[Rfam]
RNA sequence: CCCUUGGAGUAUCGGACCAAACGAAAGUAGCAAAUAAGCAAAAUCGGAUACUAUGAAUAGGGAA
Numbered sequence: 001c002c003c004u005u006g007g008a009g010u011a012u013c014g015g016a017c018c019a020a021a022c023g024a025a026a027g028u029a030g031c032a033a034a035u036a037a038g039c040a041a042a043a044u045c046g047g048a049u050a051c052u053a054u055g056a057a058u059a060g061g062g063a064a
Base pairs, nucleotide, nucleotide: 001062002061003060004059009051010050011049012048013047022046023045024044030039031038
The family of this 64-nucleotide sequence from Clostridium autoethanogenum is "RAGATH-18 RNA". The base pairs follow the family's consensus structure, which is taken from published work. It is annotated as a small RNA. Rfam's curators put it in the seed alignment.